[Rfam]
Actinobacteria sRNA Ms_IGR-5: a 188-nucleotide RNA from Salana multivorans.
RNA sequence: ACACGUGAAGGGAGGUGGUCCACGACAUGAAGCUCGUUCGGACUCGUGAGGUGGUCGCCCGCUAGUCGGGAGCCACGGACGGCUCGCCGCCCGGCUCUCCAGGCGAGACCACGGCGAUCACCGGAACCCGCGGGAGCGGCGCACUCGUCCAGCGUCGCAGCCACUCGGCAGCCCGCGGGUUCUUCCAU
Numbered sequence: 001a002c003a004c005g006u007g008a009a010g011g012g013a014g015g016u017g018g019u020c021c022a023c024g025a026c027a028u029g030a031a032g033c034u035c036g037u038u039c040g041g042a043c044u045c046g047u048g049a050g051g052u053g054g055u056c057g058c059c060c061g062c063u064a065g066u067c068g069g070g071a072g073c074c075a076c077g078g079a080c081g082g083c084u085c086g087c088c089g090c091c092c093g094g095c096u097c098u099c100c101a102g103g104c105g106a107g108a109c110c111a112c113g114g115c116g117a118u119c120a121c122c123g124g125a126a127c128c129c130g131c132g133g134g135a136g137c138g139g140c141g142c143a144c145u146c147g148u149c150c151a152g153c154g155u156c157g158c159a160g161c162c163a164c165u166c167g168g169c170a171g172c173c174c175g176c177g178g179g180u181u182c183u184u185c186c187a188u
Base pairs, nucleotide, nucleotide: 014059015058016057017056018055019054060105061104062103063102065100068099069098070097071096072095073094074093124182125181126180127179128178129177130176131175132174133173134172137157138156139155140154141153142152